[Rfam]
RNA sequence: UGGUCAGAUGAAGAAUAUAAAACUGCAACAAUAUGAUGGGAUUAUUCUCCUAUGAUUCCCUCAUUUUAAGUCUCUGAUGACA
Numbered sequence: 001u002g003g004u005c006a007g008a009u010g011a012a013g014a015a016u017a018u019a020a021a022a023c024u025g026c027a028a029c030a031a032u033a034u035g036a037u038g039g040g041a042u043u044a045u046u047c048u049c050c051u052a053u054g055a056u057u058c059c060c061u062c063a064u065u066u067u068a069a070g071u072c073u074c075u076g077a078u079g080a081c082a
Stems, first nucleotide, its partner, number of pairs: 001082002004080003038051004
The family of this 82-nucleotide sequence from Zea mays is "Small nucleolar RNA Z199". Lineage of the source: Eukaryota > Euphyllophyta > Poaceae > Panicoideae > Zea. By type it is a C/D-box small nucleolar RNA. The family's consensus secondary structure was predicted with PFOLD.